[Rfam]
RNA sequence: AGCUUUAUGAUUAAAUGCCCUUUUAGGCAAUAUACGCUAUUCUGAUUGUUAAUAUUAACUAGAAAAUAAAUUUUAAUGAGAGCU
Numbered sequence: 001a002g003c004u005u006u007a008u009g010a011u012u013a014a015a016u017g018c019c020c021u022u023u024u025a026g027g028c029a030a031u032a033u034a035c036g037c038u039a040u041u042c043u044g045a046u047u048g049u050u051a052a053u054a055u056u057a058a059c060u061a062g063a064a065a066a067u068a069a070a071u072u073u074u075a076a077u078g079a080g081a082g083c084u
Stems, first nucleotide, its partner, number of pairs: 001084005
The family of this 84-nucleotide sequence from Mikania micrantha is "Small nucleolar RNA U54". Its Rfam clan is "U54 clan". The literature on the family includes a 2003 paper in Nucleic Acids Res by Chen et al., "The high diversity of snoRNAs in plants: identification and comparative study of 120 snoRNA genes from Oryza sativa". NCBI's taxonomy places the organism under Eukaryota, Viridiplantae, Spermatophyta, Gunneridae, Mikania.